Shown here is an 84-nucleotide sequence from Plesiomonas shigelloides, a member of the family "RybB RNA". Rfam's curators write: This ncRNA was identified in a large scale screen of E. coli. The function of this short RNA is unknown. The exact 5' and 3' ends of this RNA are uncertain. Rfam classes the family as a small RNA. The match comes from Rfam's covariance-model search (42 bits). For this family Rfam cites "Identification of novel small RNAs using comparative genomics and microarrays" (Wassarman et al., Genes Dev, 2001). The source organism's lineage runs through Bacteria, Pseudomonadati, Enterobacteriaceae, Plesiomonas and Plesiomonas shigelloides.

RNA sequence: ACUGCUUUUUCUUUGAUGUCCCCUGAGUUUAGAGGAUAACCCGGUAACGUAAUCUUUGGUUCCCAGUUACCGGGCGUUUUUCUU
Numbered sequence: 001a002c003u004g005c006u007u008u009u010u011c012u013u014u015g016a017u018g019u020c021c022c023c024u025g026a027g028u029u030u031a032g033a034g035g036a037u038a039a040c041c042c043g044g045u046a047a048c049g050u051a052a053u054c055u056u057u058g059g060u061u062c063c064c065a066g067u068u069a070c071c072g073g074g075c076g077u078u079u080u081u082c083u084u
Base pairs, nucleotide, nucleotide: 036077040074041073042072043071044070045069046068047067048066
Dot-bracket structure: ...................................(...(((((((((.................)))))))))..).......